[Rfam]
RNA sequence: AUUUGAGGUUUCCUCGGCAGAUAACUGCAGCCGGUUUCAUAAUUCGGUAGUUAACUGUCGAGGGGUAU
Numbered sequence: 001a002u003u004u005g006a007g008g009u010u011u012c013c014u015c016g017g018c019a020g021a022u023a024a025c026u027g028c029a030g031c032c033g034g035u036u037u038c039a040u041a042a043u044u045c046g047g048u049a050g051u052u053a054a055c056u057g058u059c060g061a062g063g064g065g066u067a068u
Stems, first nucleotide, its partner, number of pairs: 011064002014061007022053007
Rfam assigns this 68-nucleotide sequence from Medicago truncatula to the family "MIR2629 microRNA precursor family". A search with the family's covariance model found it, with a score of 62 bits. Lineage of the source: Eukaryota > Streptophyta > Streptophytina > Hologalegina > Medicago.